The family of this 95-nucleotide RNA from Hymenobacter jejuensis is "SAM riboswitch aptamer (S box leader)".
RNA sequence: UUUUUAUACAGAGGCGUGGAGAGACAGGCUCGACGAAGCGCCGGCAACCAACCGAUACCCAUCGGGAACGGUGCCAAGUCCUGAUCAUAUAAAAA
Dot-bracket structure: ((((((((....(((((...(((.[[[[)))......)))))((((.((..((..........))....))))))...(]]]]...)))))))))
Notes:
The SAM riboswitch is found upstream of a number of genes which code for proteins involved in methionine or cysteine biosynthesis in Gram-positive bacteria. Taxonomically the source falls in Hymenobacter (Bacteria, Bacteroidota, Cytophagia, Hymenobacteraceae).